[Rfam]
RNA sequence: CCCGGGGUUGGCACCCCGGGCUAUGGGAUGUCGCCCCUUCAGGGCU
Numbered sequence: 001c002c003c004g005g006g007g008u009u010g011g012c013a014c015c016c017c018g019g020g021c022u023a024u025g026g027g028a029u030g031u032c033g034c035c036c037c038u039u040c041a042g043g044g045c046u
Base pairs, nucleotide, nucleotide: 001020002019003018004017005016006015007014008013033045034044035043036042
Dot-bracket structure: ((((((((....))))))))............((((.....)))).

A member of the RNA family "Acido-Lenti-1 RNA" from Cyclonatronum proteinivorum, 46 nucleotides long. The family has 87 seed sequences and 2,607 matches in Rfam 15.1.